Overview:
Rfam assigns this 50-nucleotide sequence from Halovulum marinum to the family "Guanidine-II riboswitch aptamer (mini-ykkC)". Rfam links the family to the GO term regulation of gene expression. The match comes from Rfam's covariance-model search (38 bits). The organism belongs to Halovulum, within Bacteria. Pairs were carried over by alignment from the consensus structure, which is taken from published work.
RNA sequence: AGGCGAGGACGACCUCCCCCGUCAUGGGACCAGCACGCGGGACGGCCCGG
Numbered sequence: 001a002g003g004c005g006a007g008g009a010c011g012a013c014c015u016c017c018c019c020c021g022u023c024a025u026g027g028g029a030c031c032a033g034c035a036c037g038c039g040g041g042a043c044g045g046c047c048c049g050g
Base pairs, nucleotide, nucleotide: 002019003018005016006015007014008013038049039048040047041046